[Rfam]
RNA: Small nucleolar SNORD12/SNORD106
Organism: Hymenochirus boettgeri
RNA sequence: GCUGACUGGGUGAUGACUAAACUUUUUUUCCCCAACAGAUCGUCCAUGUUGAUUUGUUGUGCUCUAAGCCAGUUGGUCUGACAUCAGC
Number, nucleotide and partner (000 for none) at each position: 001g088002c087003u086004g085005a084006c000007u083008g082009g000010g000011u000012g000013a000014u000015g000016a000017c000018u000019a000020a000021a000022c000023u000024u000025u000026u000027u000028u000029u000030c000031c000032c000033c000034a000035a000036c000037a000038g000039a000040u000041c000042g000043u000044c000045c000046a000047u000048g000049u000050u000051g000052a000053u000054u000055u000056g000057u000058u000059g000060u000061g000062c000063u000064c000065u000066a000067a000068g000069c000070c000071a000072g000073u000074u000075g000076g000077u000078c000079u000080g000081a000082c008083a007084u005085c004086a003087g002088c001